[Rfam]
RNA sequence: AACCGGCAGCGGUUGGGAGGUUUCCCUUCUUUACUAACCCUAACUCGCUGUCUCCGACGGCGGCUGGCCUCGUUCGCUGUUUUACUCGCUGACUUUCAGCGAACCGAAGCUCCGAAAAAACGUCAGCGAUUCGGGGGAAGCCUCCUCCUCCGCCAGCCGGCCACGUGUCCGUUCCCUCCUUUCUCCGCCUCGAGCGUGCUCGGCUUUCGAGCCGCGCAGCCGCCCCCGCUCGAGGCCGCGGUCAGCUUGGUCCGGGCCACUGCUGCCGCGAAGGGUUUGGCCCUGCCCGCCUCGGGGGAGGCGAGUCUCACCGAAAGGCGGAGGACGGCGGGGAAAAAAGUGCUCGCAAGGCCCGGGCGUGAGAGCAAAUACGGGCGGCGGCCCCUGUCCCACUCGCCCCUGAGUAGUGGGGUGUGUGGCGGGCGCCGUCCGGACAUGC
Dot-bracket structure: ....(((.(.((..((((((.(((((.............................................((((((((........[[[[[[[[[)))))))).............]]].]]]]]].......))))).)))))))).).)))...((.((......................................((.((((((.(.(.(((......(((((........(((((.((((..(((....)))...))))))))).((((.....))))........)))))...))).).)....)))))).))..................................)).)).............((((((((.((......((((...((((........))))...)))).)).))))))))........
A member of the RNA family "Vertebrate telomerase RNA" from Pseudonaja textilis, 439 nucleotides long.
Rfam's curators write: Telomerase is a ribonucleoprotein reverse transcriptase that synthesises telomeric DNA. Telomerase RNAs differ greatly in sequence and structure between vertebrates, ciliates and yeasts, but they share a 5' pseudoknot structure close to the template sequence.
NCBI's taxonomy places the organism under Eukaryota, Vertebrata, Dipnotetrapodomorpha, Unidentata, Pseudonaja.
Rfam links the family to the GO terms telomerase activity, telomere maintenance via telomerase and telomerase catalytic core complex.
A reference for the family is Antal et al. (2002), "Analysis of the structure of human telomerase RNA in vivo", Nucleic Acids Res.
The family's RNA type in Rfam is non-coding RNA gene.